[Rfam]
Overview:
The record is a 41-nucleotide RNA from Scleropages formosus, which matches "MAT2A 3'UTR stem loop D" in Rfam. The organism belongs to Scleropages, within Eukaryota. The family's RNA type in Rfam is cis-regulatory element.
RNA sequence: UCUGAAACUUGGUGUGGAUACAGAGAAGCUACAGUUUCAGA
Numbered sequence: 001u002c003u004g005a006a007a008c009u010u011g012g013u014g015u016g017g018a019u020a021c022a023g024a025g026a027a028g029c030u031a032c033a034g035u036u037u038c039a040g041a
Stems, first nucleotide, its partner, number of pairs: 001041008010031004